Rfam assigns this 128-nucleotide RNA sequence from Catellicoccus marimammalium to the family "Ribosomal protein L10 leader". Taxonomically the source falls in Catellicoccus marimammalium (Bacteria, Bacilli, Enterococcaceae, Catellicoccus).
[Rfam]
RNA sequence: UAAUAAAGGUUAUAAGUGCCGAAGACAGUAGGUGUGAGCAAUCACUUAAUUUCCUACCCGAGGACAAUGAUUUAAAAUCAUAACGUCUCUCUAUGUCUGCGGUGACAUGGAGUUUUUUUAUUUCAUGU
Numbered sequence: 001u002a003a004u005a006a007a008g009g010u011u012a013u014a015a016g017u018g019c020c021g022a023a024g025a026c027a028g029u030a031g032g033u034g035u036g037a038g039c040a041a042u043c044a045c046u047u048a049a050u051u052u053c054c055u056a057c058c059c060g061a062g063g064a065c066a067a068u069g070a071u072u073u074a075a076a077a078u079c080a081u082a083a084c085g086u087c088u089c090u091c092u093a094u095g096u097c098u099g100c101g102g103u104g105a106c107a108u109g110g111a112g113u114u115u116u117u118u119u120a121u122u123u124c125a126u127g128u
Base pairs, nucleotide, nucleotide: 028057029056030055031054032053034045035044036043089112090111091110092109093108094107095106096105097104

Overview: It is annotated as a cis-regulatory leader.